[Rfam]
RNA sequence: CUCUUAUCCAGAGUGGUGGAGGGACAUGGACCCUUUGAAGCCCAGCAACCUUUUAAGUAAGGUGCCAAACCGUUUGCAGAUUAAUUCUGAACGAUAAGAG
Number, nucleotide and partner (000 for none) at each position: 001c100002u099003c098004u097005u096006a095007u094008c093009c000010a000011g000012a000013g043014u000015g042016g041017u040018g000019g000020a000021g033022g032023g031024a000025c000026a000027u076028g075029g074030a000031c023032c022033c021034u000035u000036u000037g000038a000039a000040g017041c016042c015043c013044a000045g065046c064047a063048a000049c062050c061051u000052u057053u000054u000055a000056a000057g052058u000059a000060a000061g050062g049063u047064g046065c045066c000067a000068a000069a000070c000071c000072g000073u000074u029075u028076g027077c089078a088079g087080a086081u000082u000083a000084a000085u000086u080087c079088u078089g077090a000091a000092c000093g008094a007095u006096a005097a004098g003099a002100g001